[Rfam]
RNA sequence: GACCCGGUACGCGACUGGCGCAACAGAUGGUGGAACCGACCACCGGGAAGCGGAGCGCCGCCGCACCGCGCGCCUGGGUGCGGUGG
Numbered sequence: 001g002a003c004c005c006g007g008u009a010c011g012c013g014a015c016u017g018g019c020g021c022a023a024c025a026g027a028u029g030g031u032g033g034a035a036c037c038g039a040c041c042a043c044c045g046g047g048a049a050g051c052g053g054a055g056c057g058c059c060g061c062c063g064c065a066c067c068g069c070g071c072g073c074c075u076g077g078g079u080g081c082g083g084u085g086g
Stems, first nucleotide, its partner, number of pairs: 005057002008054001010052003015047002017074005030043004063081005
ZMP/ZTP riboswitch aptamer (pfl RNA motif): an 86-nucleotide RNA from a Micromonosporaceae bacterium. The match comes from Rfam's covariance-model search (49 bits).